[Rfam]
RNA sequence: GGAGUCUGUACCAGCAGGCUGUCGGCGUCAUCGAUCUCACCGCCGACGUGGUAGGGCAGUCCGCAGUUGGCGAAUGAGACAUACGCGCCGCGUUCCAACACGAUGAUCUCGGCGGACUCGUCCAAGCGUCGAGCCCGCGCCGCGCUGCUCAUGCCGCCGGCCACCCCGC
Numbered sequence: 001g002g003a004g005u006c007u008g009u010a011c012c013a014g015c016a017g018g019c020u021g022u023c024g025g026c027g028u029c030a031u032c033g034a035u036c037u038c039a040c041c042g043c044c045g046a047c048g049u050g051g052u053a054g055g056g057c058a059g060u061c062c063g064c065a066g067u068u069g070g071c072g073a074a075u076g077a078g079a080c081a082u083a084c085g086c087g088c089c090g091c092g093u094u095c096c097a098a099c100a101c102g103a104u105g106a107u108c109u110c111g112g113c114g115g116a117c118u119c120g121u122c123c124a125a126g127c128g129u130c131g132a133g134c135c136c137g138c139g140c141c142g143c144g145c146u147g148c149u150c151a152u153g154c155c156g157c158c159g160g161c162c163a164c165c166c167c168g169c
Stems, first nucleotide, its partner, number of pairs: 001167002004164002008161002011025002014022003032056001035053001037051004061070002076154001084147002086144003092140002095137001099133001101131002104128002107125001111122004
Dot-bracket structure: ((.((..((.((.(((...))).))......(..(.((((.......)))).)..)....((......)).....(.......(((((...((.(...(.((.((.(...((((....))))..).)).)).)...).)).))).))......).....)).)).))..

Notes: This 169-nucleotide RNA sequence from Stackebrandtia endophytica belongs to the Rfam family "Vibrio RNA AS7". NCBI's taxonomy places the organism under Bacteria, Actinomycetota, Actinomycetes, Glycomycetaceae, Stackebrandtia. A search with the family's covariance model found it, with a score of 91 bits. From the family's description: Identified by direct cloning an parallel sequencing experiments with 5S/tRNA depletion. Confirmed by Northern blot. Pairs were carried over by alignment from the consensus structure, which was predicted with RNAfold.